[Rfam]
RNA sequence: UGCCACAAACCCGUAGAUCCGAACUUGUGGUCAUAUUCCACACAAGGCUUGUAUCUAUAGGUAUGUUCGC
Numbered sequence: 001u002g003c004c005a006c007a008a009a010c011c012c013g014u015a016g017a018u019c020c021g022a023a024c025u026u027g028u029g030g031u032c033a034u035a036u037u038c039c040a041c042a043c044a045a046g047g048c049u050u051g052u053a054u055c056u057a058u059a060g061g062u063a064u065g066u067u068c069g070c
Base pairs, nucleotide, nucleotide: 002068005066006065007064010061011060015056016055017054018053020051021050022049024047025045026044027043028042029041